[Rfam]
RNA sequence: GGCGGGUCCCUUCGCAUUGUGGGGCGGUGAAUCGGGUCAGGUCCGGAAGGAAGCAGCCACAGCUGUUAUCCAUGAGUGCCGAAGUUCAGGCUCGCCUUC
Dot-bracket structure: ...(((((.((((((.((((((((((((......(((....(((....)))....)))...))))))..)))))))...)))))....)))))......

Shown here is a 99-nucleotide sequence from Hydromonas duriensis, a member of the family "Bacterial small signal recognition particle RNA".
Rfam describes the family as follows. The signal recognition particle (SRP) is a universally conserved ribonucleoprotein involved in the co-translational targeting of proteins to membranes.
Pairs were carried over by alignment from the consensus structure, which is taken from published work.
Taxonomically the source falls in Hydromonas (Bacteria, Pseudomonadati, Betaproteobacteria, Burkholderiales).
The match comes from Rfam's covariance-model search (70 bits).